[Rfam]
RNA sequence: AUUUAAUAUAAAUCCAAACCAAAGACCGUAGGUGGUGAAAACCUUAAAAACCCUACCGAGGUUGGAGUUAAGGUAUUCGCUAACCUCAAAUGUGUACUUCAACCUCCGGUCCUUAGUUAAAUUUGGUUCCGGAGGUUAUUUUUAAGAAAA
Numbered sequence: 001a002u003u004u005a006a007u008a009u010a011a012a013u014c015c016a017a018a019c020c021a022a023a024g025a026c027c028g029u030a031g032g033u034g035g036u037g038a039a040a041a042c043c044u045u046a047a048a049a050a051c052c053c054u055a056c057c058g059a060g061g062u063u064g065g066a067g068u069u070a071a072g073g074u075a076u077u078c079g080c081u082a083a084c085c086u087c088a089a090a091u092g093u094g095u096a097c098u099u100c101a102a103c104c105u106c107c108g109g110u111c112c113u114u115a116g117u118u119a120a121a122u123u124u125g126g127u128u129c130c131g132g133a134g135g136u137u138a139u140u141u142u143u144a145a146g147a148a149a150a
Stems, first nucleotide, its partner, number of pairs: 028056005034043003103135007112126001
RNA: Ribosomal protein L10 leader
Organism: Propionigenium maris